[Rfam]
RNA sequence: AAGCGUUCACUCCACCACUUGCGUGGAGCGCAGUUCGAUCCAGGCCAAGGAAUGGGGACCUGGA
Numbered sequence: 001a002a003g004c005g006u007u008c009a010c011u012c013c014a015c016c017a018c019u020u021g022c023g024u025g026g027a028g029c030g031c032a033g034u035u036c037g038a039u040c041c042a043g044g045c046c047a048a049g050g051a052a053u054g055g056g057g058a059c060c061u062g063g064a
Stems, first nucleotide, its partner, number of pairs: 004054005010028005039064006045057002